[Rfam]
RNA sequence: UGACAGCGAUGAUGUGGAAGGUUGCUGACACACCCGGCCGCUUUGCCAUGGCGAGUGUCGUCAGGAUAUUUUCACGGAGAAUGUCUAUUAUCAAAUAGGCGG
Numbered sequence: 001u002g003a004c005a006g007c008g009a010u011g012a013u014g015u016g017g018a019a020g021g022u023u024g025c026u027g028a029c030a031c032a033c034c035c036g037g038c039c040g041c042u043u044u045g046c047c048a049u050g051g052c053g054a055g056u057g058u059c060g061u062c063a064g065g066a067u068a069u070u071u072u073c074a075c076g077g078a079g080a081a082u083g084u085c086u087a088u089u090a091u092c093a094a095a096u097a098g099g100c101g102g
Base pairs, nucleotide, nucleotide: 014075015074016073018072019071020070021069025064026063027062028061029060084102085101089099091097
Rfam assigns this 102-nucleotide sequence from Bacillus aerolatus to the family "S10-Clostridia ribosomal protein leader". On this family, see Eckert and Weinberg, BMC Microbiol 2020: "Discovery of 20 novel ribosomal leader candidates in bacteria and archaea".